The family of this 90-nucleotide RNA from Nothoprocta perdicaria is "Small nucleolar SNORD12/SNORD106". The family's consensus secondary structure was predicted with RNAalifold. The match comes from Rfam's covariance-model search (77 bits). A reference for the family is Huttenhofer et al. (2001), "RNomics: an experimental approach that identifies 201 candidates for novel, small, non-messenger RNAs in mouse", EMBO J. Clan: SNORD12 clan.
[Rfam]
RNA sequence: UCUGGUGUACGUGAUGACCAGACUUUUUUCCCCAUCAGAGCGACAGUGUUGAUUCCUCACAGCUAGCCAGGUCCUGUCUGAUGCACCAGC
Numbered sequence: 001u002c003u004g005g006u007g008u009a010c011g012u013g014a015u016g017a018c019c020a021g022a023c024u025u026u027u028u029u030c031c032c033c034a035u036c037a038g039a040g041c042g043a044c045a046g047u048g049u050u051g052a053u054u055c056c057u058c059a060c061a062g063c064u065a066g067c068c069a070g071g072u073c074c075u076g077u078c079u080g081a082u083g084c085a086c087c088a089g090c
Stems, first nucleotide, its partner, number of pairs: 002089008